[Rfam]
RNA sequence: CCUGCGGCGGAAUGUAUUUUCCGAAAAGGGCUGUUGCGCGGCGUGACCAUGCCGCGCGAGGACGACUUUACGUCCUCUGACUGAGCGAACCGGCUUCCGGUCGCUCCCUGCUCGCCACGUCCCCGGAAGGGACGUGGCGUGUAGGUCU
Numbered sequence: 001c002c003u004g005c006g007g008c009g010g011a012a013u014g015u016a017u018u019u020u021c022c023g024a025a026a027a028g029g030g031c032u033g034u035u036g037c038g039c040g041g042c043g044u045g046a047c048c049a050u051g052c053c054g055c056g057c058g059a060g061g062a063c064g065a066c067u068u069u070a071c072g073u074c075c076u077c078u079g080a081c082u083g084a085g086c087g088a089a090c091c092g093g094c095u096u097c098c099g100g101u102c103g104c105u106c107c108c109u110g111c112u113c114g115c116c117a118c119g120u121c122c123c124c125g126g127a128a129g130g131g132a133c134g135u136g137g138c139g140u141g142u143a144g145g146u147c148u
Stems, first nucleotide, its partner, number of pairs: 008023005034079001036057009058077007083106005091099003107145005113139011
Dot-bracket structure: .......(((((......)))))..........(.(((((((((....)))))))))(((((((......))))))).)...(((((...(((...)))..)))))(((((.(((((((((((.....))))))))))).)))))...